[Rfam]
RNA sequence: UCGACUGCACUUGCACAGGAUCACUUCUACAGUGAUUCCUCUUGCUCACACAACGGUCUUCAGAACACUCCAUAGCCUCUGAUGAUGAAGAUUGGUUUUCUCACAAGGACUUGCUUCACUGCUUGAUGACAGUGUCGAGAAGAUCAUGUCUGAAGAGAU
Numbered sequence: 001u002c003g004a005c006u007g008c009a010c011u012u013g014c015a016c017a018g019g020a021u022c023a024c025u026u027c028u029a030c031a032g033u034g035a036u037u038c039c040u041c042u043u044g045c046u047c048a049c050a051c052a053a054c055g056g057u058c059u060u061c062a063g064a065a066c067a068c069u070c071c072a073u074a075g076c077c078u079c080u081g082a083u084g085a086u087g088a089a090g091a092u093u094g095g096u097u098u099u100c101u102c103a104c105a106a107g108g109a110c111u112u113g114c115u116u117c118a119c120u121g122c123u124u125g126a127u128g129a130c131a132g133u134g135u136c137g138a139g140a141a142g143a144u145c146a147u148g149u150c151u152g153a154a155g156a157g158a159u
Stems, first nucleotide, its partner, number of pairs: 003039001006035001008034004017028004043067002046064002050060001077157004093146010104113003117134003121130001
This 159-nucleotide RNA from Symbiodinium sp. CCMP2456 belongs to the Rfam family "ACEA small nucleolar RNA U3". Rfam classes the family as a C/D-box small nucleolar RNA. About the family: Small nucleolar RNAs (snoRNAs) are involved in the processing and modification of rRNA in the nucleolus. There are two main classes of snoRNAs: the box C/D class, and the box H/ACA class. For this family Rfam cites "The uRNA database" (Zwieb, Nucleic Acids Res, 1997). The family is grouped with related families in Rfam's "U3 clan". A search with the family's covariance model found it, with a score of 61 bits.